The family of this 119-nucleotide RNA sequence from Govanella unica is "Glycine riboswitch aptamer".
This family represents the bacterial glycine riboswitch.
The organism belongs to Govanella, within Bacteria.
The match comes from Rfam's covariance-model search (55 bits).
The pairing is the family consensus, mapped onto this sequence.
[Rfam]
RNA sequence: AGACCUCUCGCGGGAGAGAUCAACCCCGACAAGACAGCAAUCUGAAUGUCUUGCCGGAGACGACGCCGAAGGAGCAACCGCCCCGGAAACUCUCAGGCACAACGGACCGCGAGCAGACA
Numbered sequence: 001a002g003a004c005c006u007c008u009c010g011c012g013g014g015a016g017a018g019a020u021c022a023a024c025c026c027c028g029a030c031a032a033g034a035c036a037g038c039a040a041u042c043u044g045a046a047u048g049u050c051u052u053g054c055c056g057g058a059g060a061c062g063a064c065g066c067c068g069a070a071g072g073a074g075c076a077a078c079c080g081c082c083c084c085g086g087a088a089a090c091u092c093u094c095a096g097g098c099a100c101a102a103c104g105g106a107c108c109g110c111g112a113g114c115a116g117a118c119a
Stems, first nucleotide, its partner, number of pairs: 007113007020063002065098003068094002072092003078086002